c-di-GMP-I riboswitch aptamer: an 80-nucleotide sequence from Desulfatibacillum alkenivorans.
It scores 62 bits against the family's covariance model.

RNA sequence: GUCUCUUUUUGCCAAACCUGCCGCAAGGCAGGGACGGAAAGCUCCGGGUCCCCCAUGAGGGGGACGGCCGAGCCGCCGGC
Number, nucleotide and partner (000 for none) at each position: 001g000002u000003c000004u000005c000006u000007u000008u000009u000010u000011g000012c037013c036014a000015a000016a000017c032018c031019u030020g029021c028022c027023g000024c000025a000026a000027g022028g021029c020030a019031g018032g017033g000034a000035c000036g013037g012038a000039a000040a000041g073042c072043u071044c000045c070046g069047g068048g065049u064050c063051c062052c061053c060054c059055a000056u000057g000058a000059g054060g053061g052062g051063g050064a049065c048066g000067g000068c047069c046070g045071a043072g042073c041074c000075g000076c000077c000078g000079g000080c000